[Rfam]
RNA sequence: UAUAAUGCAAGCGAUGGAGCUCGCUUUAGUGCCGGAAGGCUAAUAGCUCCUACCAAAAC
Numbered sequence: 001u002a003u004a005a006u007g008c009a010a011g012c013g014a015u016g017g018a019g020c021u022c023g024c025u026u027u028a029g030u031g032c033c034g035g036a037a038g039g040c041u042a043a044u045a046g047c048u049c050c051u052a053c054c055a056a057a058a059c
Stems, first nucleotide, its partner, number of pairs: 010025004016050006031040003